[Rfam]
Nucleotides: 135
Stems, first nucleotide, its partner, number of pairs: 012103003015027003052078003056074001058073002061070002080095005105135007113128006
Number, partner (000 for none) and nucleotide at each position: 001000a002000c003000c004000u005000c006000g007000g008000c009000c010000a011000c012103u013102u014101g015027g016026c017025a018000c019000a020000g021000g022000c023000g024000c025017u026016g027015c028000a029000u030000u031000g032000c033000g034000u035000c036000a037000g038000g039000c040000a041000a042000c043000a044000g045000a046000c047000a048000u049000a050000a051000a052078g053077c054076c055000c056074g057000g058073c059072c060000u061070u062069c063000a064000a065000c066000g067000a068000c069062g070061a071000a072059g073058g074056c075000a076054g077053g078052c079000u080095u081094c082093c083092c084091g085000a086000g087000a088000g089000a090000a091084c092083g093082g094081g095080a096000u097000c098000g099000g100000a101014c102013a103012a104000a105135g106134g107133c108132g109131u110130c111129c112000u113128c114127g115126u116125c117124a118123g119000g120000c121000c122000a123118c124117u125116g126115a127114c128113g129111g130110g131109a132108c133107g134106c135105c
Rfam assigns this 135-nucleotide RNA from Pseudomonas sp. Boi14 to the family "Pseudomonas sRNA P11". The family's consensus secondary structure was predicted with RNAalifold. This small RNA (sRNA) was computationally identified in the genome of the opportunistic pathogen Pseudomonas aeruginosa and its expression verified by northern blot analysis. P11 is located between a putative threonine protein kinase and putative nitrate reductase and appears to be conserved in several Pseudomonas species. The source organism's lineage runs through Bacteria, Gammaproteobacteria, Pseudomonadales, Pseudomonadaceae and Pseudomonas. It is annotated as a non-coding RNA gene.